[Rfam]
RNA: Ribosomal protein L19 leader
RNA sequence: ACGAUGUUCCGCUGUAUGUAGAAGAUUAAUCAUACAUGAGCAUCUG
Number, nucleotide and partner (000 for none) at each position: 001a000002c000003g044004a043005u042006g041007u040008u039009c038010c000011g000012c000013u036014g035015u000016a033017u032018g031019u000020a000021g000022a000023a000024g000025a000026u000027u000028a000029a000030u000031c018032a017033u016034a000035c014036a013037u000038g009039a008040g007041c006042a005043u004044c003045u000046g000